[Rfam]
RNA sequence: UUGCACUUAUCCAUUGGCCUCUCCUAAUUGGGUGGCGGGGCCUUUGAGCUAGGGUGCAUAGAUCAAUAGCUGUUAAAUCAGCAGAAGCCAGACAACCGUUGAGAUGGACCACAGGUGAAUGGCCUAAAGUGCUGCUUGCCUACUGAAUCCAUCUUACAUGU
Numbered sequence: 001u002u003g004c005a006c007u008u009a010u011c012c013a014u015u016g017g018c019c020u021c022u023c024c025u026a027a028u029u030g031g032g033u034g035g036c037g038g039g040g041c042c043u044u045u046g047a048g049c050u051a052g053g054g055u056g057c058a059u060a061g062a063u064c065a066a067u068a069g070c071u072g073u074u075a076a077a078u079c080a081g082c083a084g085a086a087g088c089c090a091g092a093c094a095a096c097c098g099u100u101g102a103g104a105u106g107g108a109c110c111a112c113a114g115g116u117g118a119a120u121g122g123c124c125u126a127a128a129g130u131g132c133u134g135c136u137u138g139c140c141u142a143c144u145g146a147a148u149c150c151a152u153c154u155u156a157c158a159u160g161u
Base pairs, nucleotide, nucleotide: 002058003057004056005055006054009050011048014047015046016042017041018040019039020038021037023035024034101155102154103153104152105151106150107149108148118137119136121132
Record summary:
This 161-nucleotide sequence from Eucalyptus grandis belongs to the Rfam family "small nucleolar RNA snoR143". Rfam links the family to the GO terms RNA processing and nucleolus. NCBI's taxonomy places the organism under Eukaryota, Mesangiospermae, eudicotyledons, Eucalypteae, Eucalyptus. The family's consensus secondary structure was predicted with RNAalifold.